[Rfam]
RNA sequence: ACUGGGAGUUGUGGCGUACUCCUGUAAUCCAGCUACUUGGAGGUUAGGGUUGGUGGACGGUUCGAGGGCGGGGGUCCUGCUCUCCGGGAACCUAUGUCGAUCGGGCGUCCGCACUAAGCAGGGCAUCAAUAUGGUCAGCUCGGGGGAGCCCAGGCUCACCAGGUUGUCUAAGGAGGGACGUACAGGCCCAGGGUGGUGACACAGCAUGCAGAAGUCCCCGUGUUCUGCAGUAGUGGGAUCGCGCCCGUGAAUAGGCACCGGUUGGCAGCCCGUCCAAUACAAGCGGAUCCAAUUCUUU
Numbered sequence: 001a002c003u004g005g006g007a008g009u010u011g012u013g014g015c016g017u018a019c020u021c022c023u024g025u026a027a028u029c030c031a032g033c034u035a036c037u038u039g040g041a042g043g044u045u046a047g048g049g050u051u052g053g054u055g056g057a058c059g060g061u062u063c064g065a066g067g068g069c070g071g072g073g074g075u076c077c078u079g080c081u082c083u084c085c086g087g088g089a090a091c092c093u094a095u096g097u098c099g100a101u102c103g104g105g106c107g108u109c110c111g112c113a114c115u116a117a118g119c120a121g122g123g124c125a126u127c128a129a130u131a132u133g134g135u136c137a138g139c140u141c142g143g144g145g146g147a148g149c150c151c152a153g154g155c156u157c158a159c160c161a162g163g164u165u166g167u168c169u170a171a172g173g174a175g176g177g178a179c180g181u182a183c184a185g186g187c188c189c190a191g192g193g194u195g196g197u198g199a200c201a202c203a204g205c206a207u208g209c210a211g212a213a214g215u216c217c218c219c220g221u222g223u224u225c226u227g228c229a230g231u232a233g234u235g236g237g238a239u240c241g242c243g244c245c246c247g248u249g250a251a252u253a254g255g256c257a258c259c260g261g262u263u264g265g266c267a268g269c270c271c272g273u274c275c276a277a278u279a280c281a282a283g284c285g286g287a288u289c290c291a292a293u294u295c296u297u298u
Base pairs, nucleotide, nucleotide: 001044002043003042004023005022006021007020008019009018028041029040030039046296047295048294049293050292051291052290053289058285059284061282062281066275067274068273069272070271071270072269077268078267079266080265081264084261085260086259087258091255092254093253094252095251097249102247103246104245105244106243107242108241109237110236112235113234114233115232116231118228119227120226121225122224123223124222125221126220127166128165129164130163132161133160134159135158137156138155139154140153142151143150144149167173168172175218176217177216178215179214186209187208193202194201195200